[Rfam]
RNA sequence: ACAACUUUUGGACCGUCGGUCUACCGAGCAAUAUCAUCCGCUCGGGGGAAGAUCUUCUUUUCGUGGU
Number, nucleotide and partner (000 for none) at each position: 001a000002c000003a000004a064005c063006u000007u000008u000009u000010g058011g057012a056013c000014c000015g053016u052017c051018g000019g000020u049021c048022u047023a000024c045025c044026g043027a042028g041029c040030a000031a000032u000033a000034u000035c000036a000037u000038c000039c000040g029041c028042u027043c026044g025045g024046g000047g022048g021049a020050a000051g017052a016053u015054c000055u000056u012057c011058u010059u000060u000061u000062c000063g005064u004065g000066g000067u000
About this RNA
Rfam assigns this 67-nucleotide RNA sequence from Bombyx mori to the family "mir-2774 microRNA precursor family". The base pairs follow the family's consensus structure, which was predicted with RNAalifold. The organism belongs to Bombyx, within Eukaryota. It scores 72 bits against the family's covariance model. For this family Rfam cites "MicroRNAs of Bombyx mori identified by Solexa sequencing" (Liu et al., BMC Genomics, 2010).